[Rfam]
RNA: Streptomyces RNA 6106
RNA sequence: ACGCCGUCCCGAGCGGCGUUCGCGGCCUCGACCGGGCCAGUGCGGCGGGGGUGGUGCCGUGUCGGCGCAGCACCACCCCCGCCUU
Numbered sequence: 001a002c003g004c005c006g007u008c009c010c011g012a013g014c015g016g017c018g019u020u021c022g023c024g025g026c027c028u029c030g031a032c033c034g035g036g037c038c039a040g041u042g043c044g045g046c047g048g049g050g051g052u053g054g055u056g057c058c059g060u061g062u063c064g065g066c067g068c069a070g071c072a073c074c075a076c077c078c079c080c081g082c083c084u085u
Base pairs, nucleotide, nucleotide: 001019002018003017004016005015006014007013021042022041023040025038026036027035028034045082046081047080048079049078050077051076052075053074054073055072056071057070059068060067061066